[Rfam]
Notes:
A member of the RNA family "Small Cajal body specific RNA 23" from Drymodes brunneopygia, 131 nucleotides long. scaRNAs are a specific class of small nuclear RNAs which localise to the Cajal bodies and guide the modification of RNA polymerase II transcribed spliceosomal RNAs U1, U2, U4, U5 and U12. ACA11 belongs to the H/ACA box class of guide RNAs as it has the predicted hairpin-hinge-hairpin-tail structure,the conserved H/ACA-box motifs and is found associated with GAR1. A reference for the family is Darzacq et al. (2002), "Cajal body-specific small nuclear RNAs: a novel class of 2'-O-methylation and pseudouridylation guide RNAs", EMBO J. By type it is a small Cajal body RNA.

Nucleotides: 131
Stems, first nucleotide, its partner, number of pairs: 003060006013043002017040001019038002025032002071127001073125004079117003084113006091106001092103002
Number, partner (000 for none) and nucleotide at each position: 001000g002000u003060g004059c005058u006057c007056a008055c009000a010000a011000g012000a013043a014042c015000a016000c017040u018000u019038u020037u021000c022000c023000u024000g025032c026031c027000a028000u029000g030000u031026g032025g033000c034000a035000g036000u037020g038019a039000u040017g041000g042014g043013u044000g045000c046000u047000g048000g049000g050000a051000a052000a053000a054000c055008g056007u057006g058005a059004g060003c061000u062000a063000g064000a065000g066000c067000a068000u069000g070000a071127g072000u073125a074124u075123u076122g077000c078000u079117u080116u081115g082000g083000g084113a085112g086111u087110g088109u089108c090000a091106c092103g093102u094000u095000c096000c097000a098000g099000g100000c101000c102093a103092c104000g105000u106091g107000g108089g109088a110087c111086a112085c113084u114000a115081c116080a117079g118000u119000u120000u121000c122076c123075a124074a125073u126000a127071c128000a129000a130000c131000a